[Rfam]
The family of this 72-nucleotide RNA from Medicago truncatula is "MIR2629 microRNA precursor family". Pairs were carried over by alignment from the consensus structure, which was predicted with RNAalifold. The source organism's lineage runs through Eukaryota, Streptophyta, rosids, fabids and Medicago. A search with the family's covariance model found it, with a score of 63 bits.

RNA sequence: UGCCGAGGUUUUCCUCAGUAGUUAACUGCAGCCGGUUUUAGACUUCCUCGGUAGUUAACUGCAGCAGAGCAU
Numbered sequence: 001u002g003c004c005g006a007g008g009u010u011u012u013c014c015u016c017a018g019u020a021g022u023u024a025a026c027u028g029c030a031g032c033c034g035g036u037u038u039u040a041g042a043c044u045u046c047c048u049c050g051g052u053a054g055u056u057a058a059c060u061g062c063a064g065c066a067g068a069g070c071a072u
Stems, first nucleotide, its partner, number of pairs: 012068002016064001018062012